Notes
Shown here is a 102-nucleotide RNA from Pantoea sp. Eser, a member of the family "Gammaprotebacteria rimP leader". The base pairs follow the family's consensus structure, which is taken from published work. For this family Rfam cites "Premature terminator analysis sheds light on a hidden world of bacterial transcriptional attenuation" (Naville and Gautheret, Genome Biol, 2010). Rfam links the family to the GO term regulation of gene expression. Taxonomically the source falls in Pantoea (Bacteria, Pseudomonadota, Gammaproteobacteria, Enterobacterales).
RNA sequence: AGCCGCAAUGCGGCGUACAGGGUCCAGUGAUUAAAAACCCCGAAUAUUCGGGGUUUUUUUGUUAUUAGCGAAUCGUAAUACUGGGCUAUAGGCCCUUUUUUU
Numbered sequence: 001a002g003c004c005g006c007a008a009u010g011c012g013g014c015g016u017a018c019a020g021g022g023u024c025c026a027g028u029g030a031u032u033a034a035a036a037a038c039c040c041c042g043a044a045u046a047u048u049c050g051g052g053g054u055u056u057u058u059u060u061g062u063u064a065u066u067a068g069c070g071a072a073u074c075g076u077a078a079u080a081c082u083g084g085g086c087u088a089u090a091g092g093c094c095c096u097u098u099u100u101u102u
Stems, first nucleotide, its partner, number of pairs: 034057009083095004